Rfam assigns this 80-nucleotide RNA sequence from Parambassis ranga to the family "mir-194 microRNA precursor family". The match comes from Rfam's covariance-model search (73 bits). Rfam 15.1 lists 936 matches to the family in 630 species.

[Rfam]
RNA sequence: GGGUCUCACCAGCUGUAACAGCAUCUCCAUAUGGAAAAACUCAGGCUUCCAGUGGAGCUGCUGUUAUCUGUGGAGGGACA
Numbered sequence: 001g002g003g004u005c006u007c008a009c010c011a012g013c014u015g016u017a018a019c020a021g022c023a024u025c026u027c028c029a030u031a032u033g034g035a036a037a038a039a040c041u042c043a044g045g046c047u048u049c050c051a052g053u054g055g056a057g058c059u060g061c062u063g064u065u066a067u068c069u070g071u072g073g074a075g076g077g078a079c080a
Stems, first nucleotide, its partner, number of pairs: 009073003015067008025057006032051003
Overview: Gene Ontology terms of the family: miRNA-mediated post-transcriptional gene silencing and RISC complex. Taxonomically the source falls in Parambassis (Eukaryota, Opisthokonta, Actinopteri, Percomorphaceae).